[Rfam]
RNA sequence: AACCACCCGCGUCGGCUACUCCACCCAAUAGCCGCCGUGAGGAACAUGAAAGGAUCGUUCCCGCCCUGACCGGCGGUGCGGCAGUGUGGAGACCUGCCGUAAAGCGCCAGAGCGGCGCGAGGCCCUGCGCGCGGAGGCGGCAGAGCCGCGGUCAGAGAAUAUGGCA
Numbered sequence: 001a002a003c004c005a006c007c008c009g010c011g012u013c014g015g016c017u018a019c020u021c022c023a024c025c026c027a028a029u030a031g032c033c034g035c036c037g038u039g040a041g042g043a044a045c046a047u048g049a050a051a052g053g054a055u056c057g058u059u060c061c062c063g064c065c066c067u068g069a070c071c072g073g074c075g076g077u078g079c080g081g082c083a084g085u086g087u088g089g090a091g092a093c094c095u096g097c098c099g100u101a102a103a104g105c106g107c108c109a110g111a112g113c114g115g116c117g118c119g120a121g122g123c124c125c126u127g128c129g130c131g132c133g134g135a136g137g138c139g140g141c142a143g144a145g146c147c148g149c150g151g152u153c154a155g156a157g158a159a160u161a162u163g164g165c166a
Stems, first nucleotide, its partner, number of pairs: 006041001008039004013034006061076004066155007077101008086093002104118005121147003125143004130139003

Shown here is a 166-nucleotide RNA sequence, a member of the family "malK-I RNA".